[Rfam]
RNA: Histidine operon leader
RNA sequence: CCAUCAUCACCAUCAUCCUGACUAGUCUUUCAGGCGAUGUGUGCUGGAAGAUGAAAAAAUCUUCCACUGGUGCAUGAACGAGUCAAUAAGCCCCCGGAAGAUUUCUUCCGGGGGCUUUUUUUU
Numbered sequence: 001c002c003a004u005c006a007u008c009a010c011c012a013u014c015a016u017c018c019u020g021a022c023u024a025g026u027c028u029u030u031c032a033g034g035c036g037a038u039g040u041g042u043g044c045u046g047g048a049a050g051a052u053g054a055a056a057a058a059a060u061c062u063u064c065c066a067c068u069g070g071u072g073c074a075u076g077a078a079c080g081a082g083u084c085a086a087u088a089a090g091c092c093c094c095c096g097g098a099a100g101a102u103u104u105c106u107u108c109c110g111g112g113g114g115c116u117u118u119u120u121u122u123u
Base pairs, nucleotide, nucleotide: 008043009042010041011039012038013037014036017034018033019032020031021030045066046065047064048063049062050061051060085120086119088117089116090115091114092113093112094111095110096109097108098107099106100105